[Rfam]
RNA sequence: CUGUCGGUGAUGAUCCAGCCGUCGAGCUGCUGUGUCUGGGCCACUGAUGUCCGUGAUGGAGCUGAGGAUCUGAGCAG
Numbered sequence: 001c002u003g004u005c006g007g008u009g010a011u012g013a014u015c016c017a018g019c020c021g022u023c024g025a026g027c028u029g030c031u032g033u034g035u036c037u038g039g040g041c042c043a044c045u046g047a048u049g050u051c052c053g054u055g056a057u058g059g060a061g062c063u064g065a066g067g068a069u070c071u072g073a074g075c076a077g
Stems, first nucleotide, its partner, number of pairs: 001077003005074001
Small nucleolar RNA SNORD66: a 77-nucleotide sequence from Cairina moschata. By type it is a C/D-box small nucleolar RNA. The literature on the family includes a 2001 paper in EMBO J by Huttenhofer et al., "RNomics: an experimental approach that identifies 201 candidates for novel, small, non-messenger RNAs in mouse". The family's consensus secondary structure was predicted with RNAalifold. Its family is annotated with RNA processing and nucleolus in the Gene Ontology. Rfam describes the family as follows. snoRNA HBII-142 is part of the C/D family of snoRNAs. It is the human orthologue of the mouse MBII-142 snoRNA and is predicted to guide 2'O-ribose methylation of small 18S rRNA at residue C1272. The organism belongs to Cairina, within Eukaryota.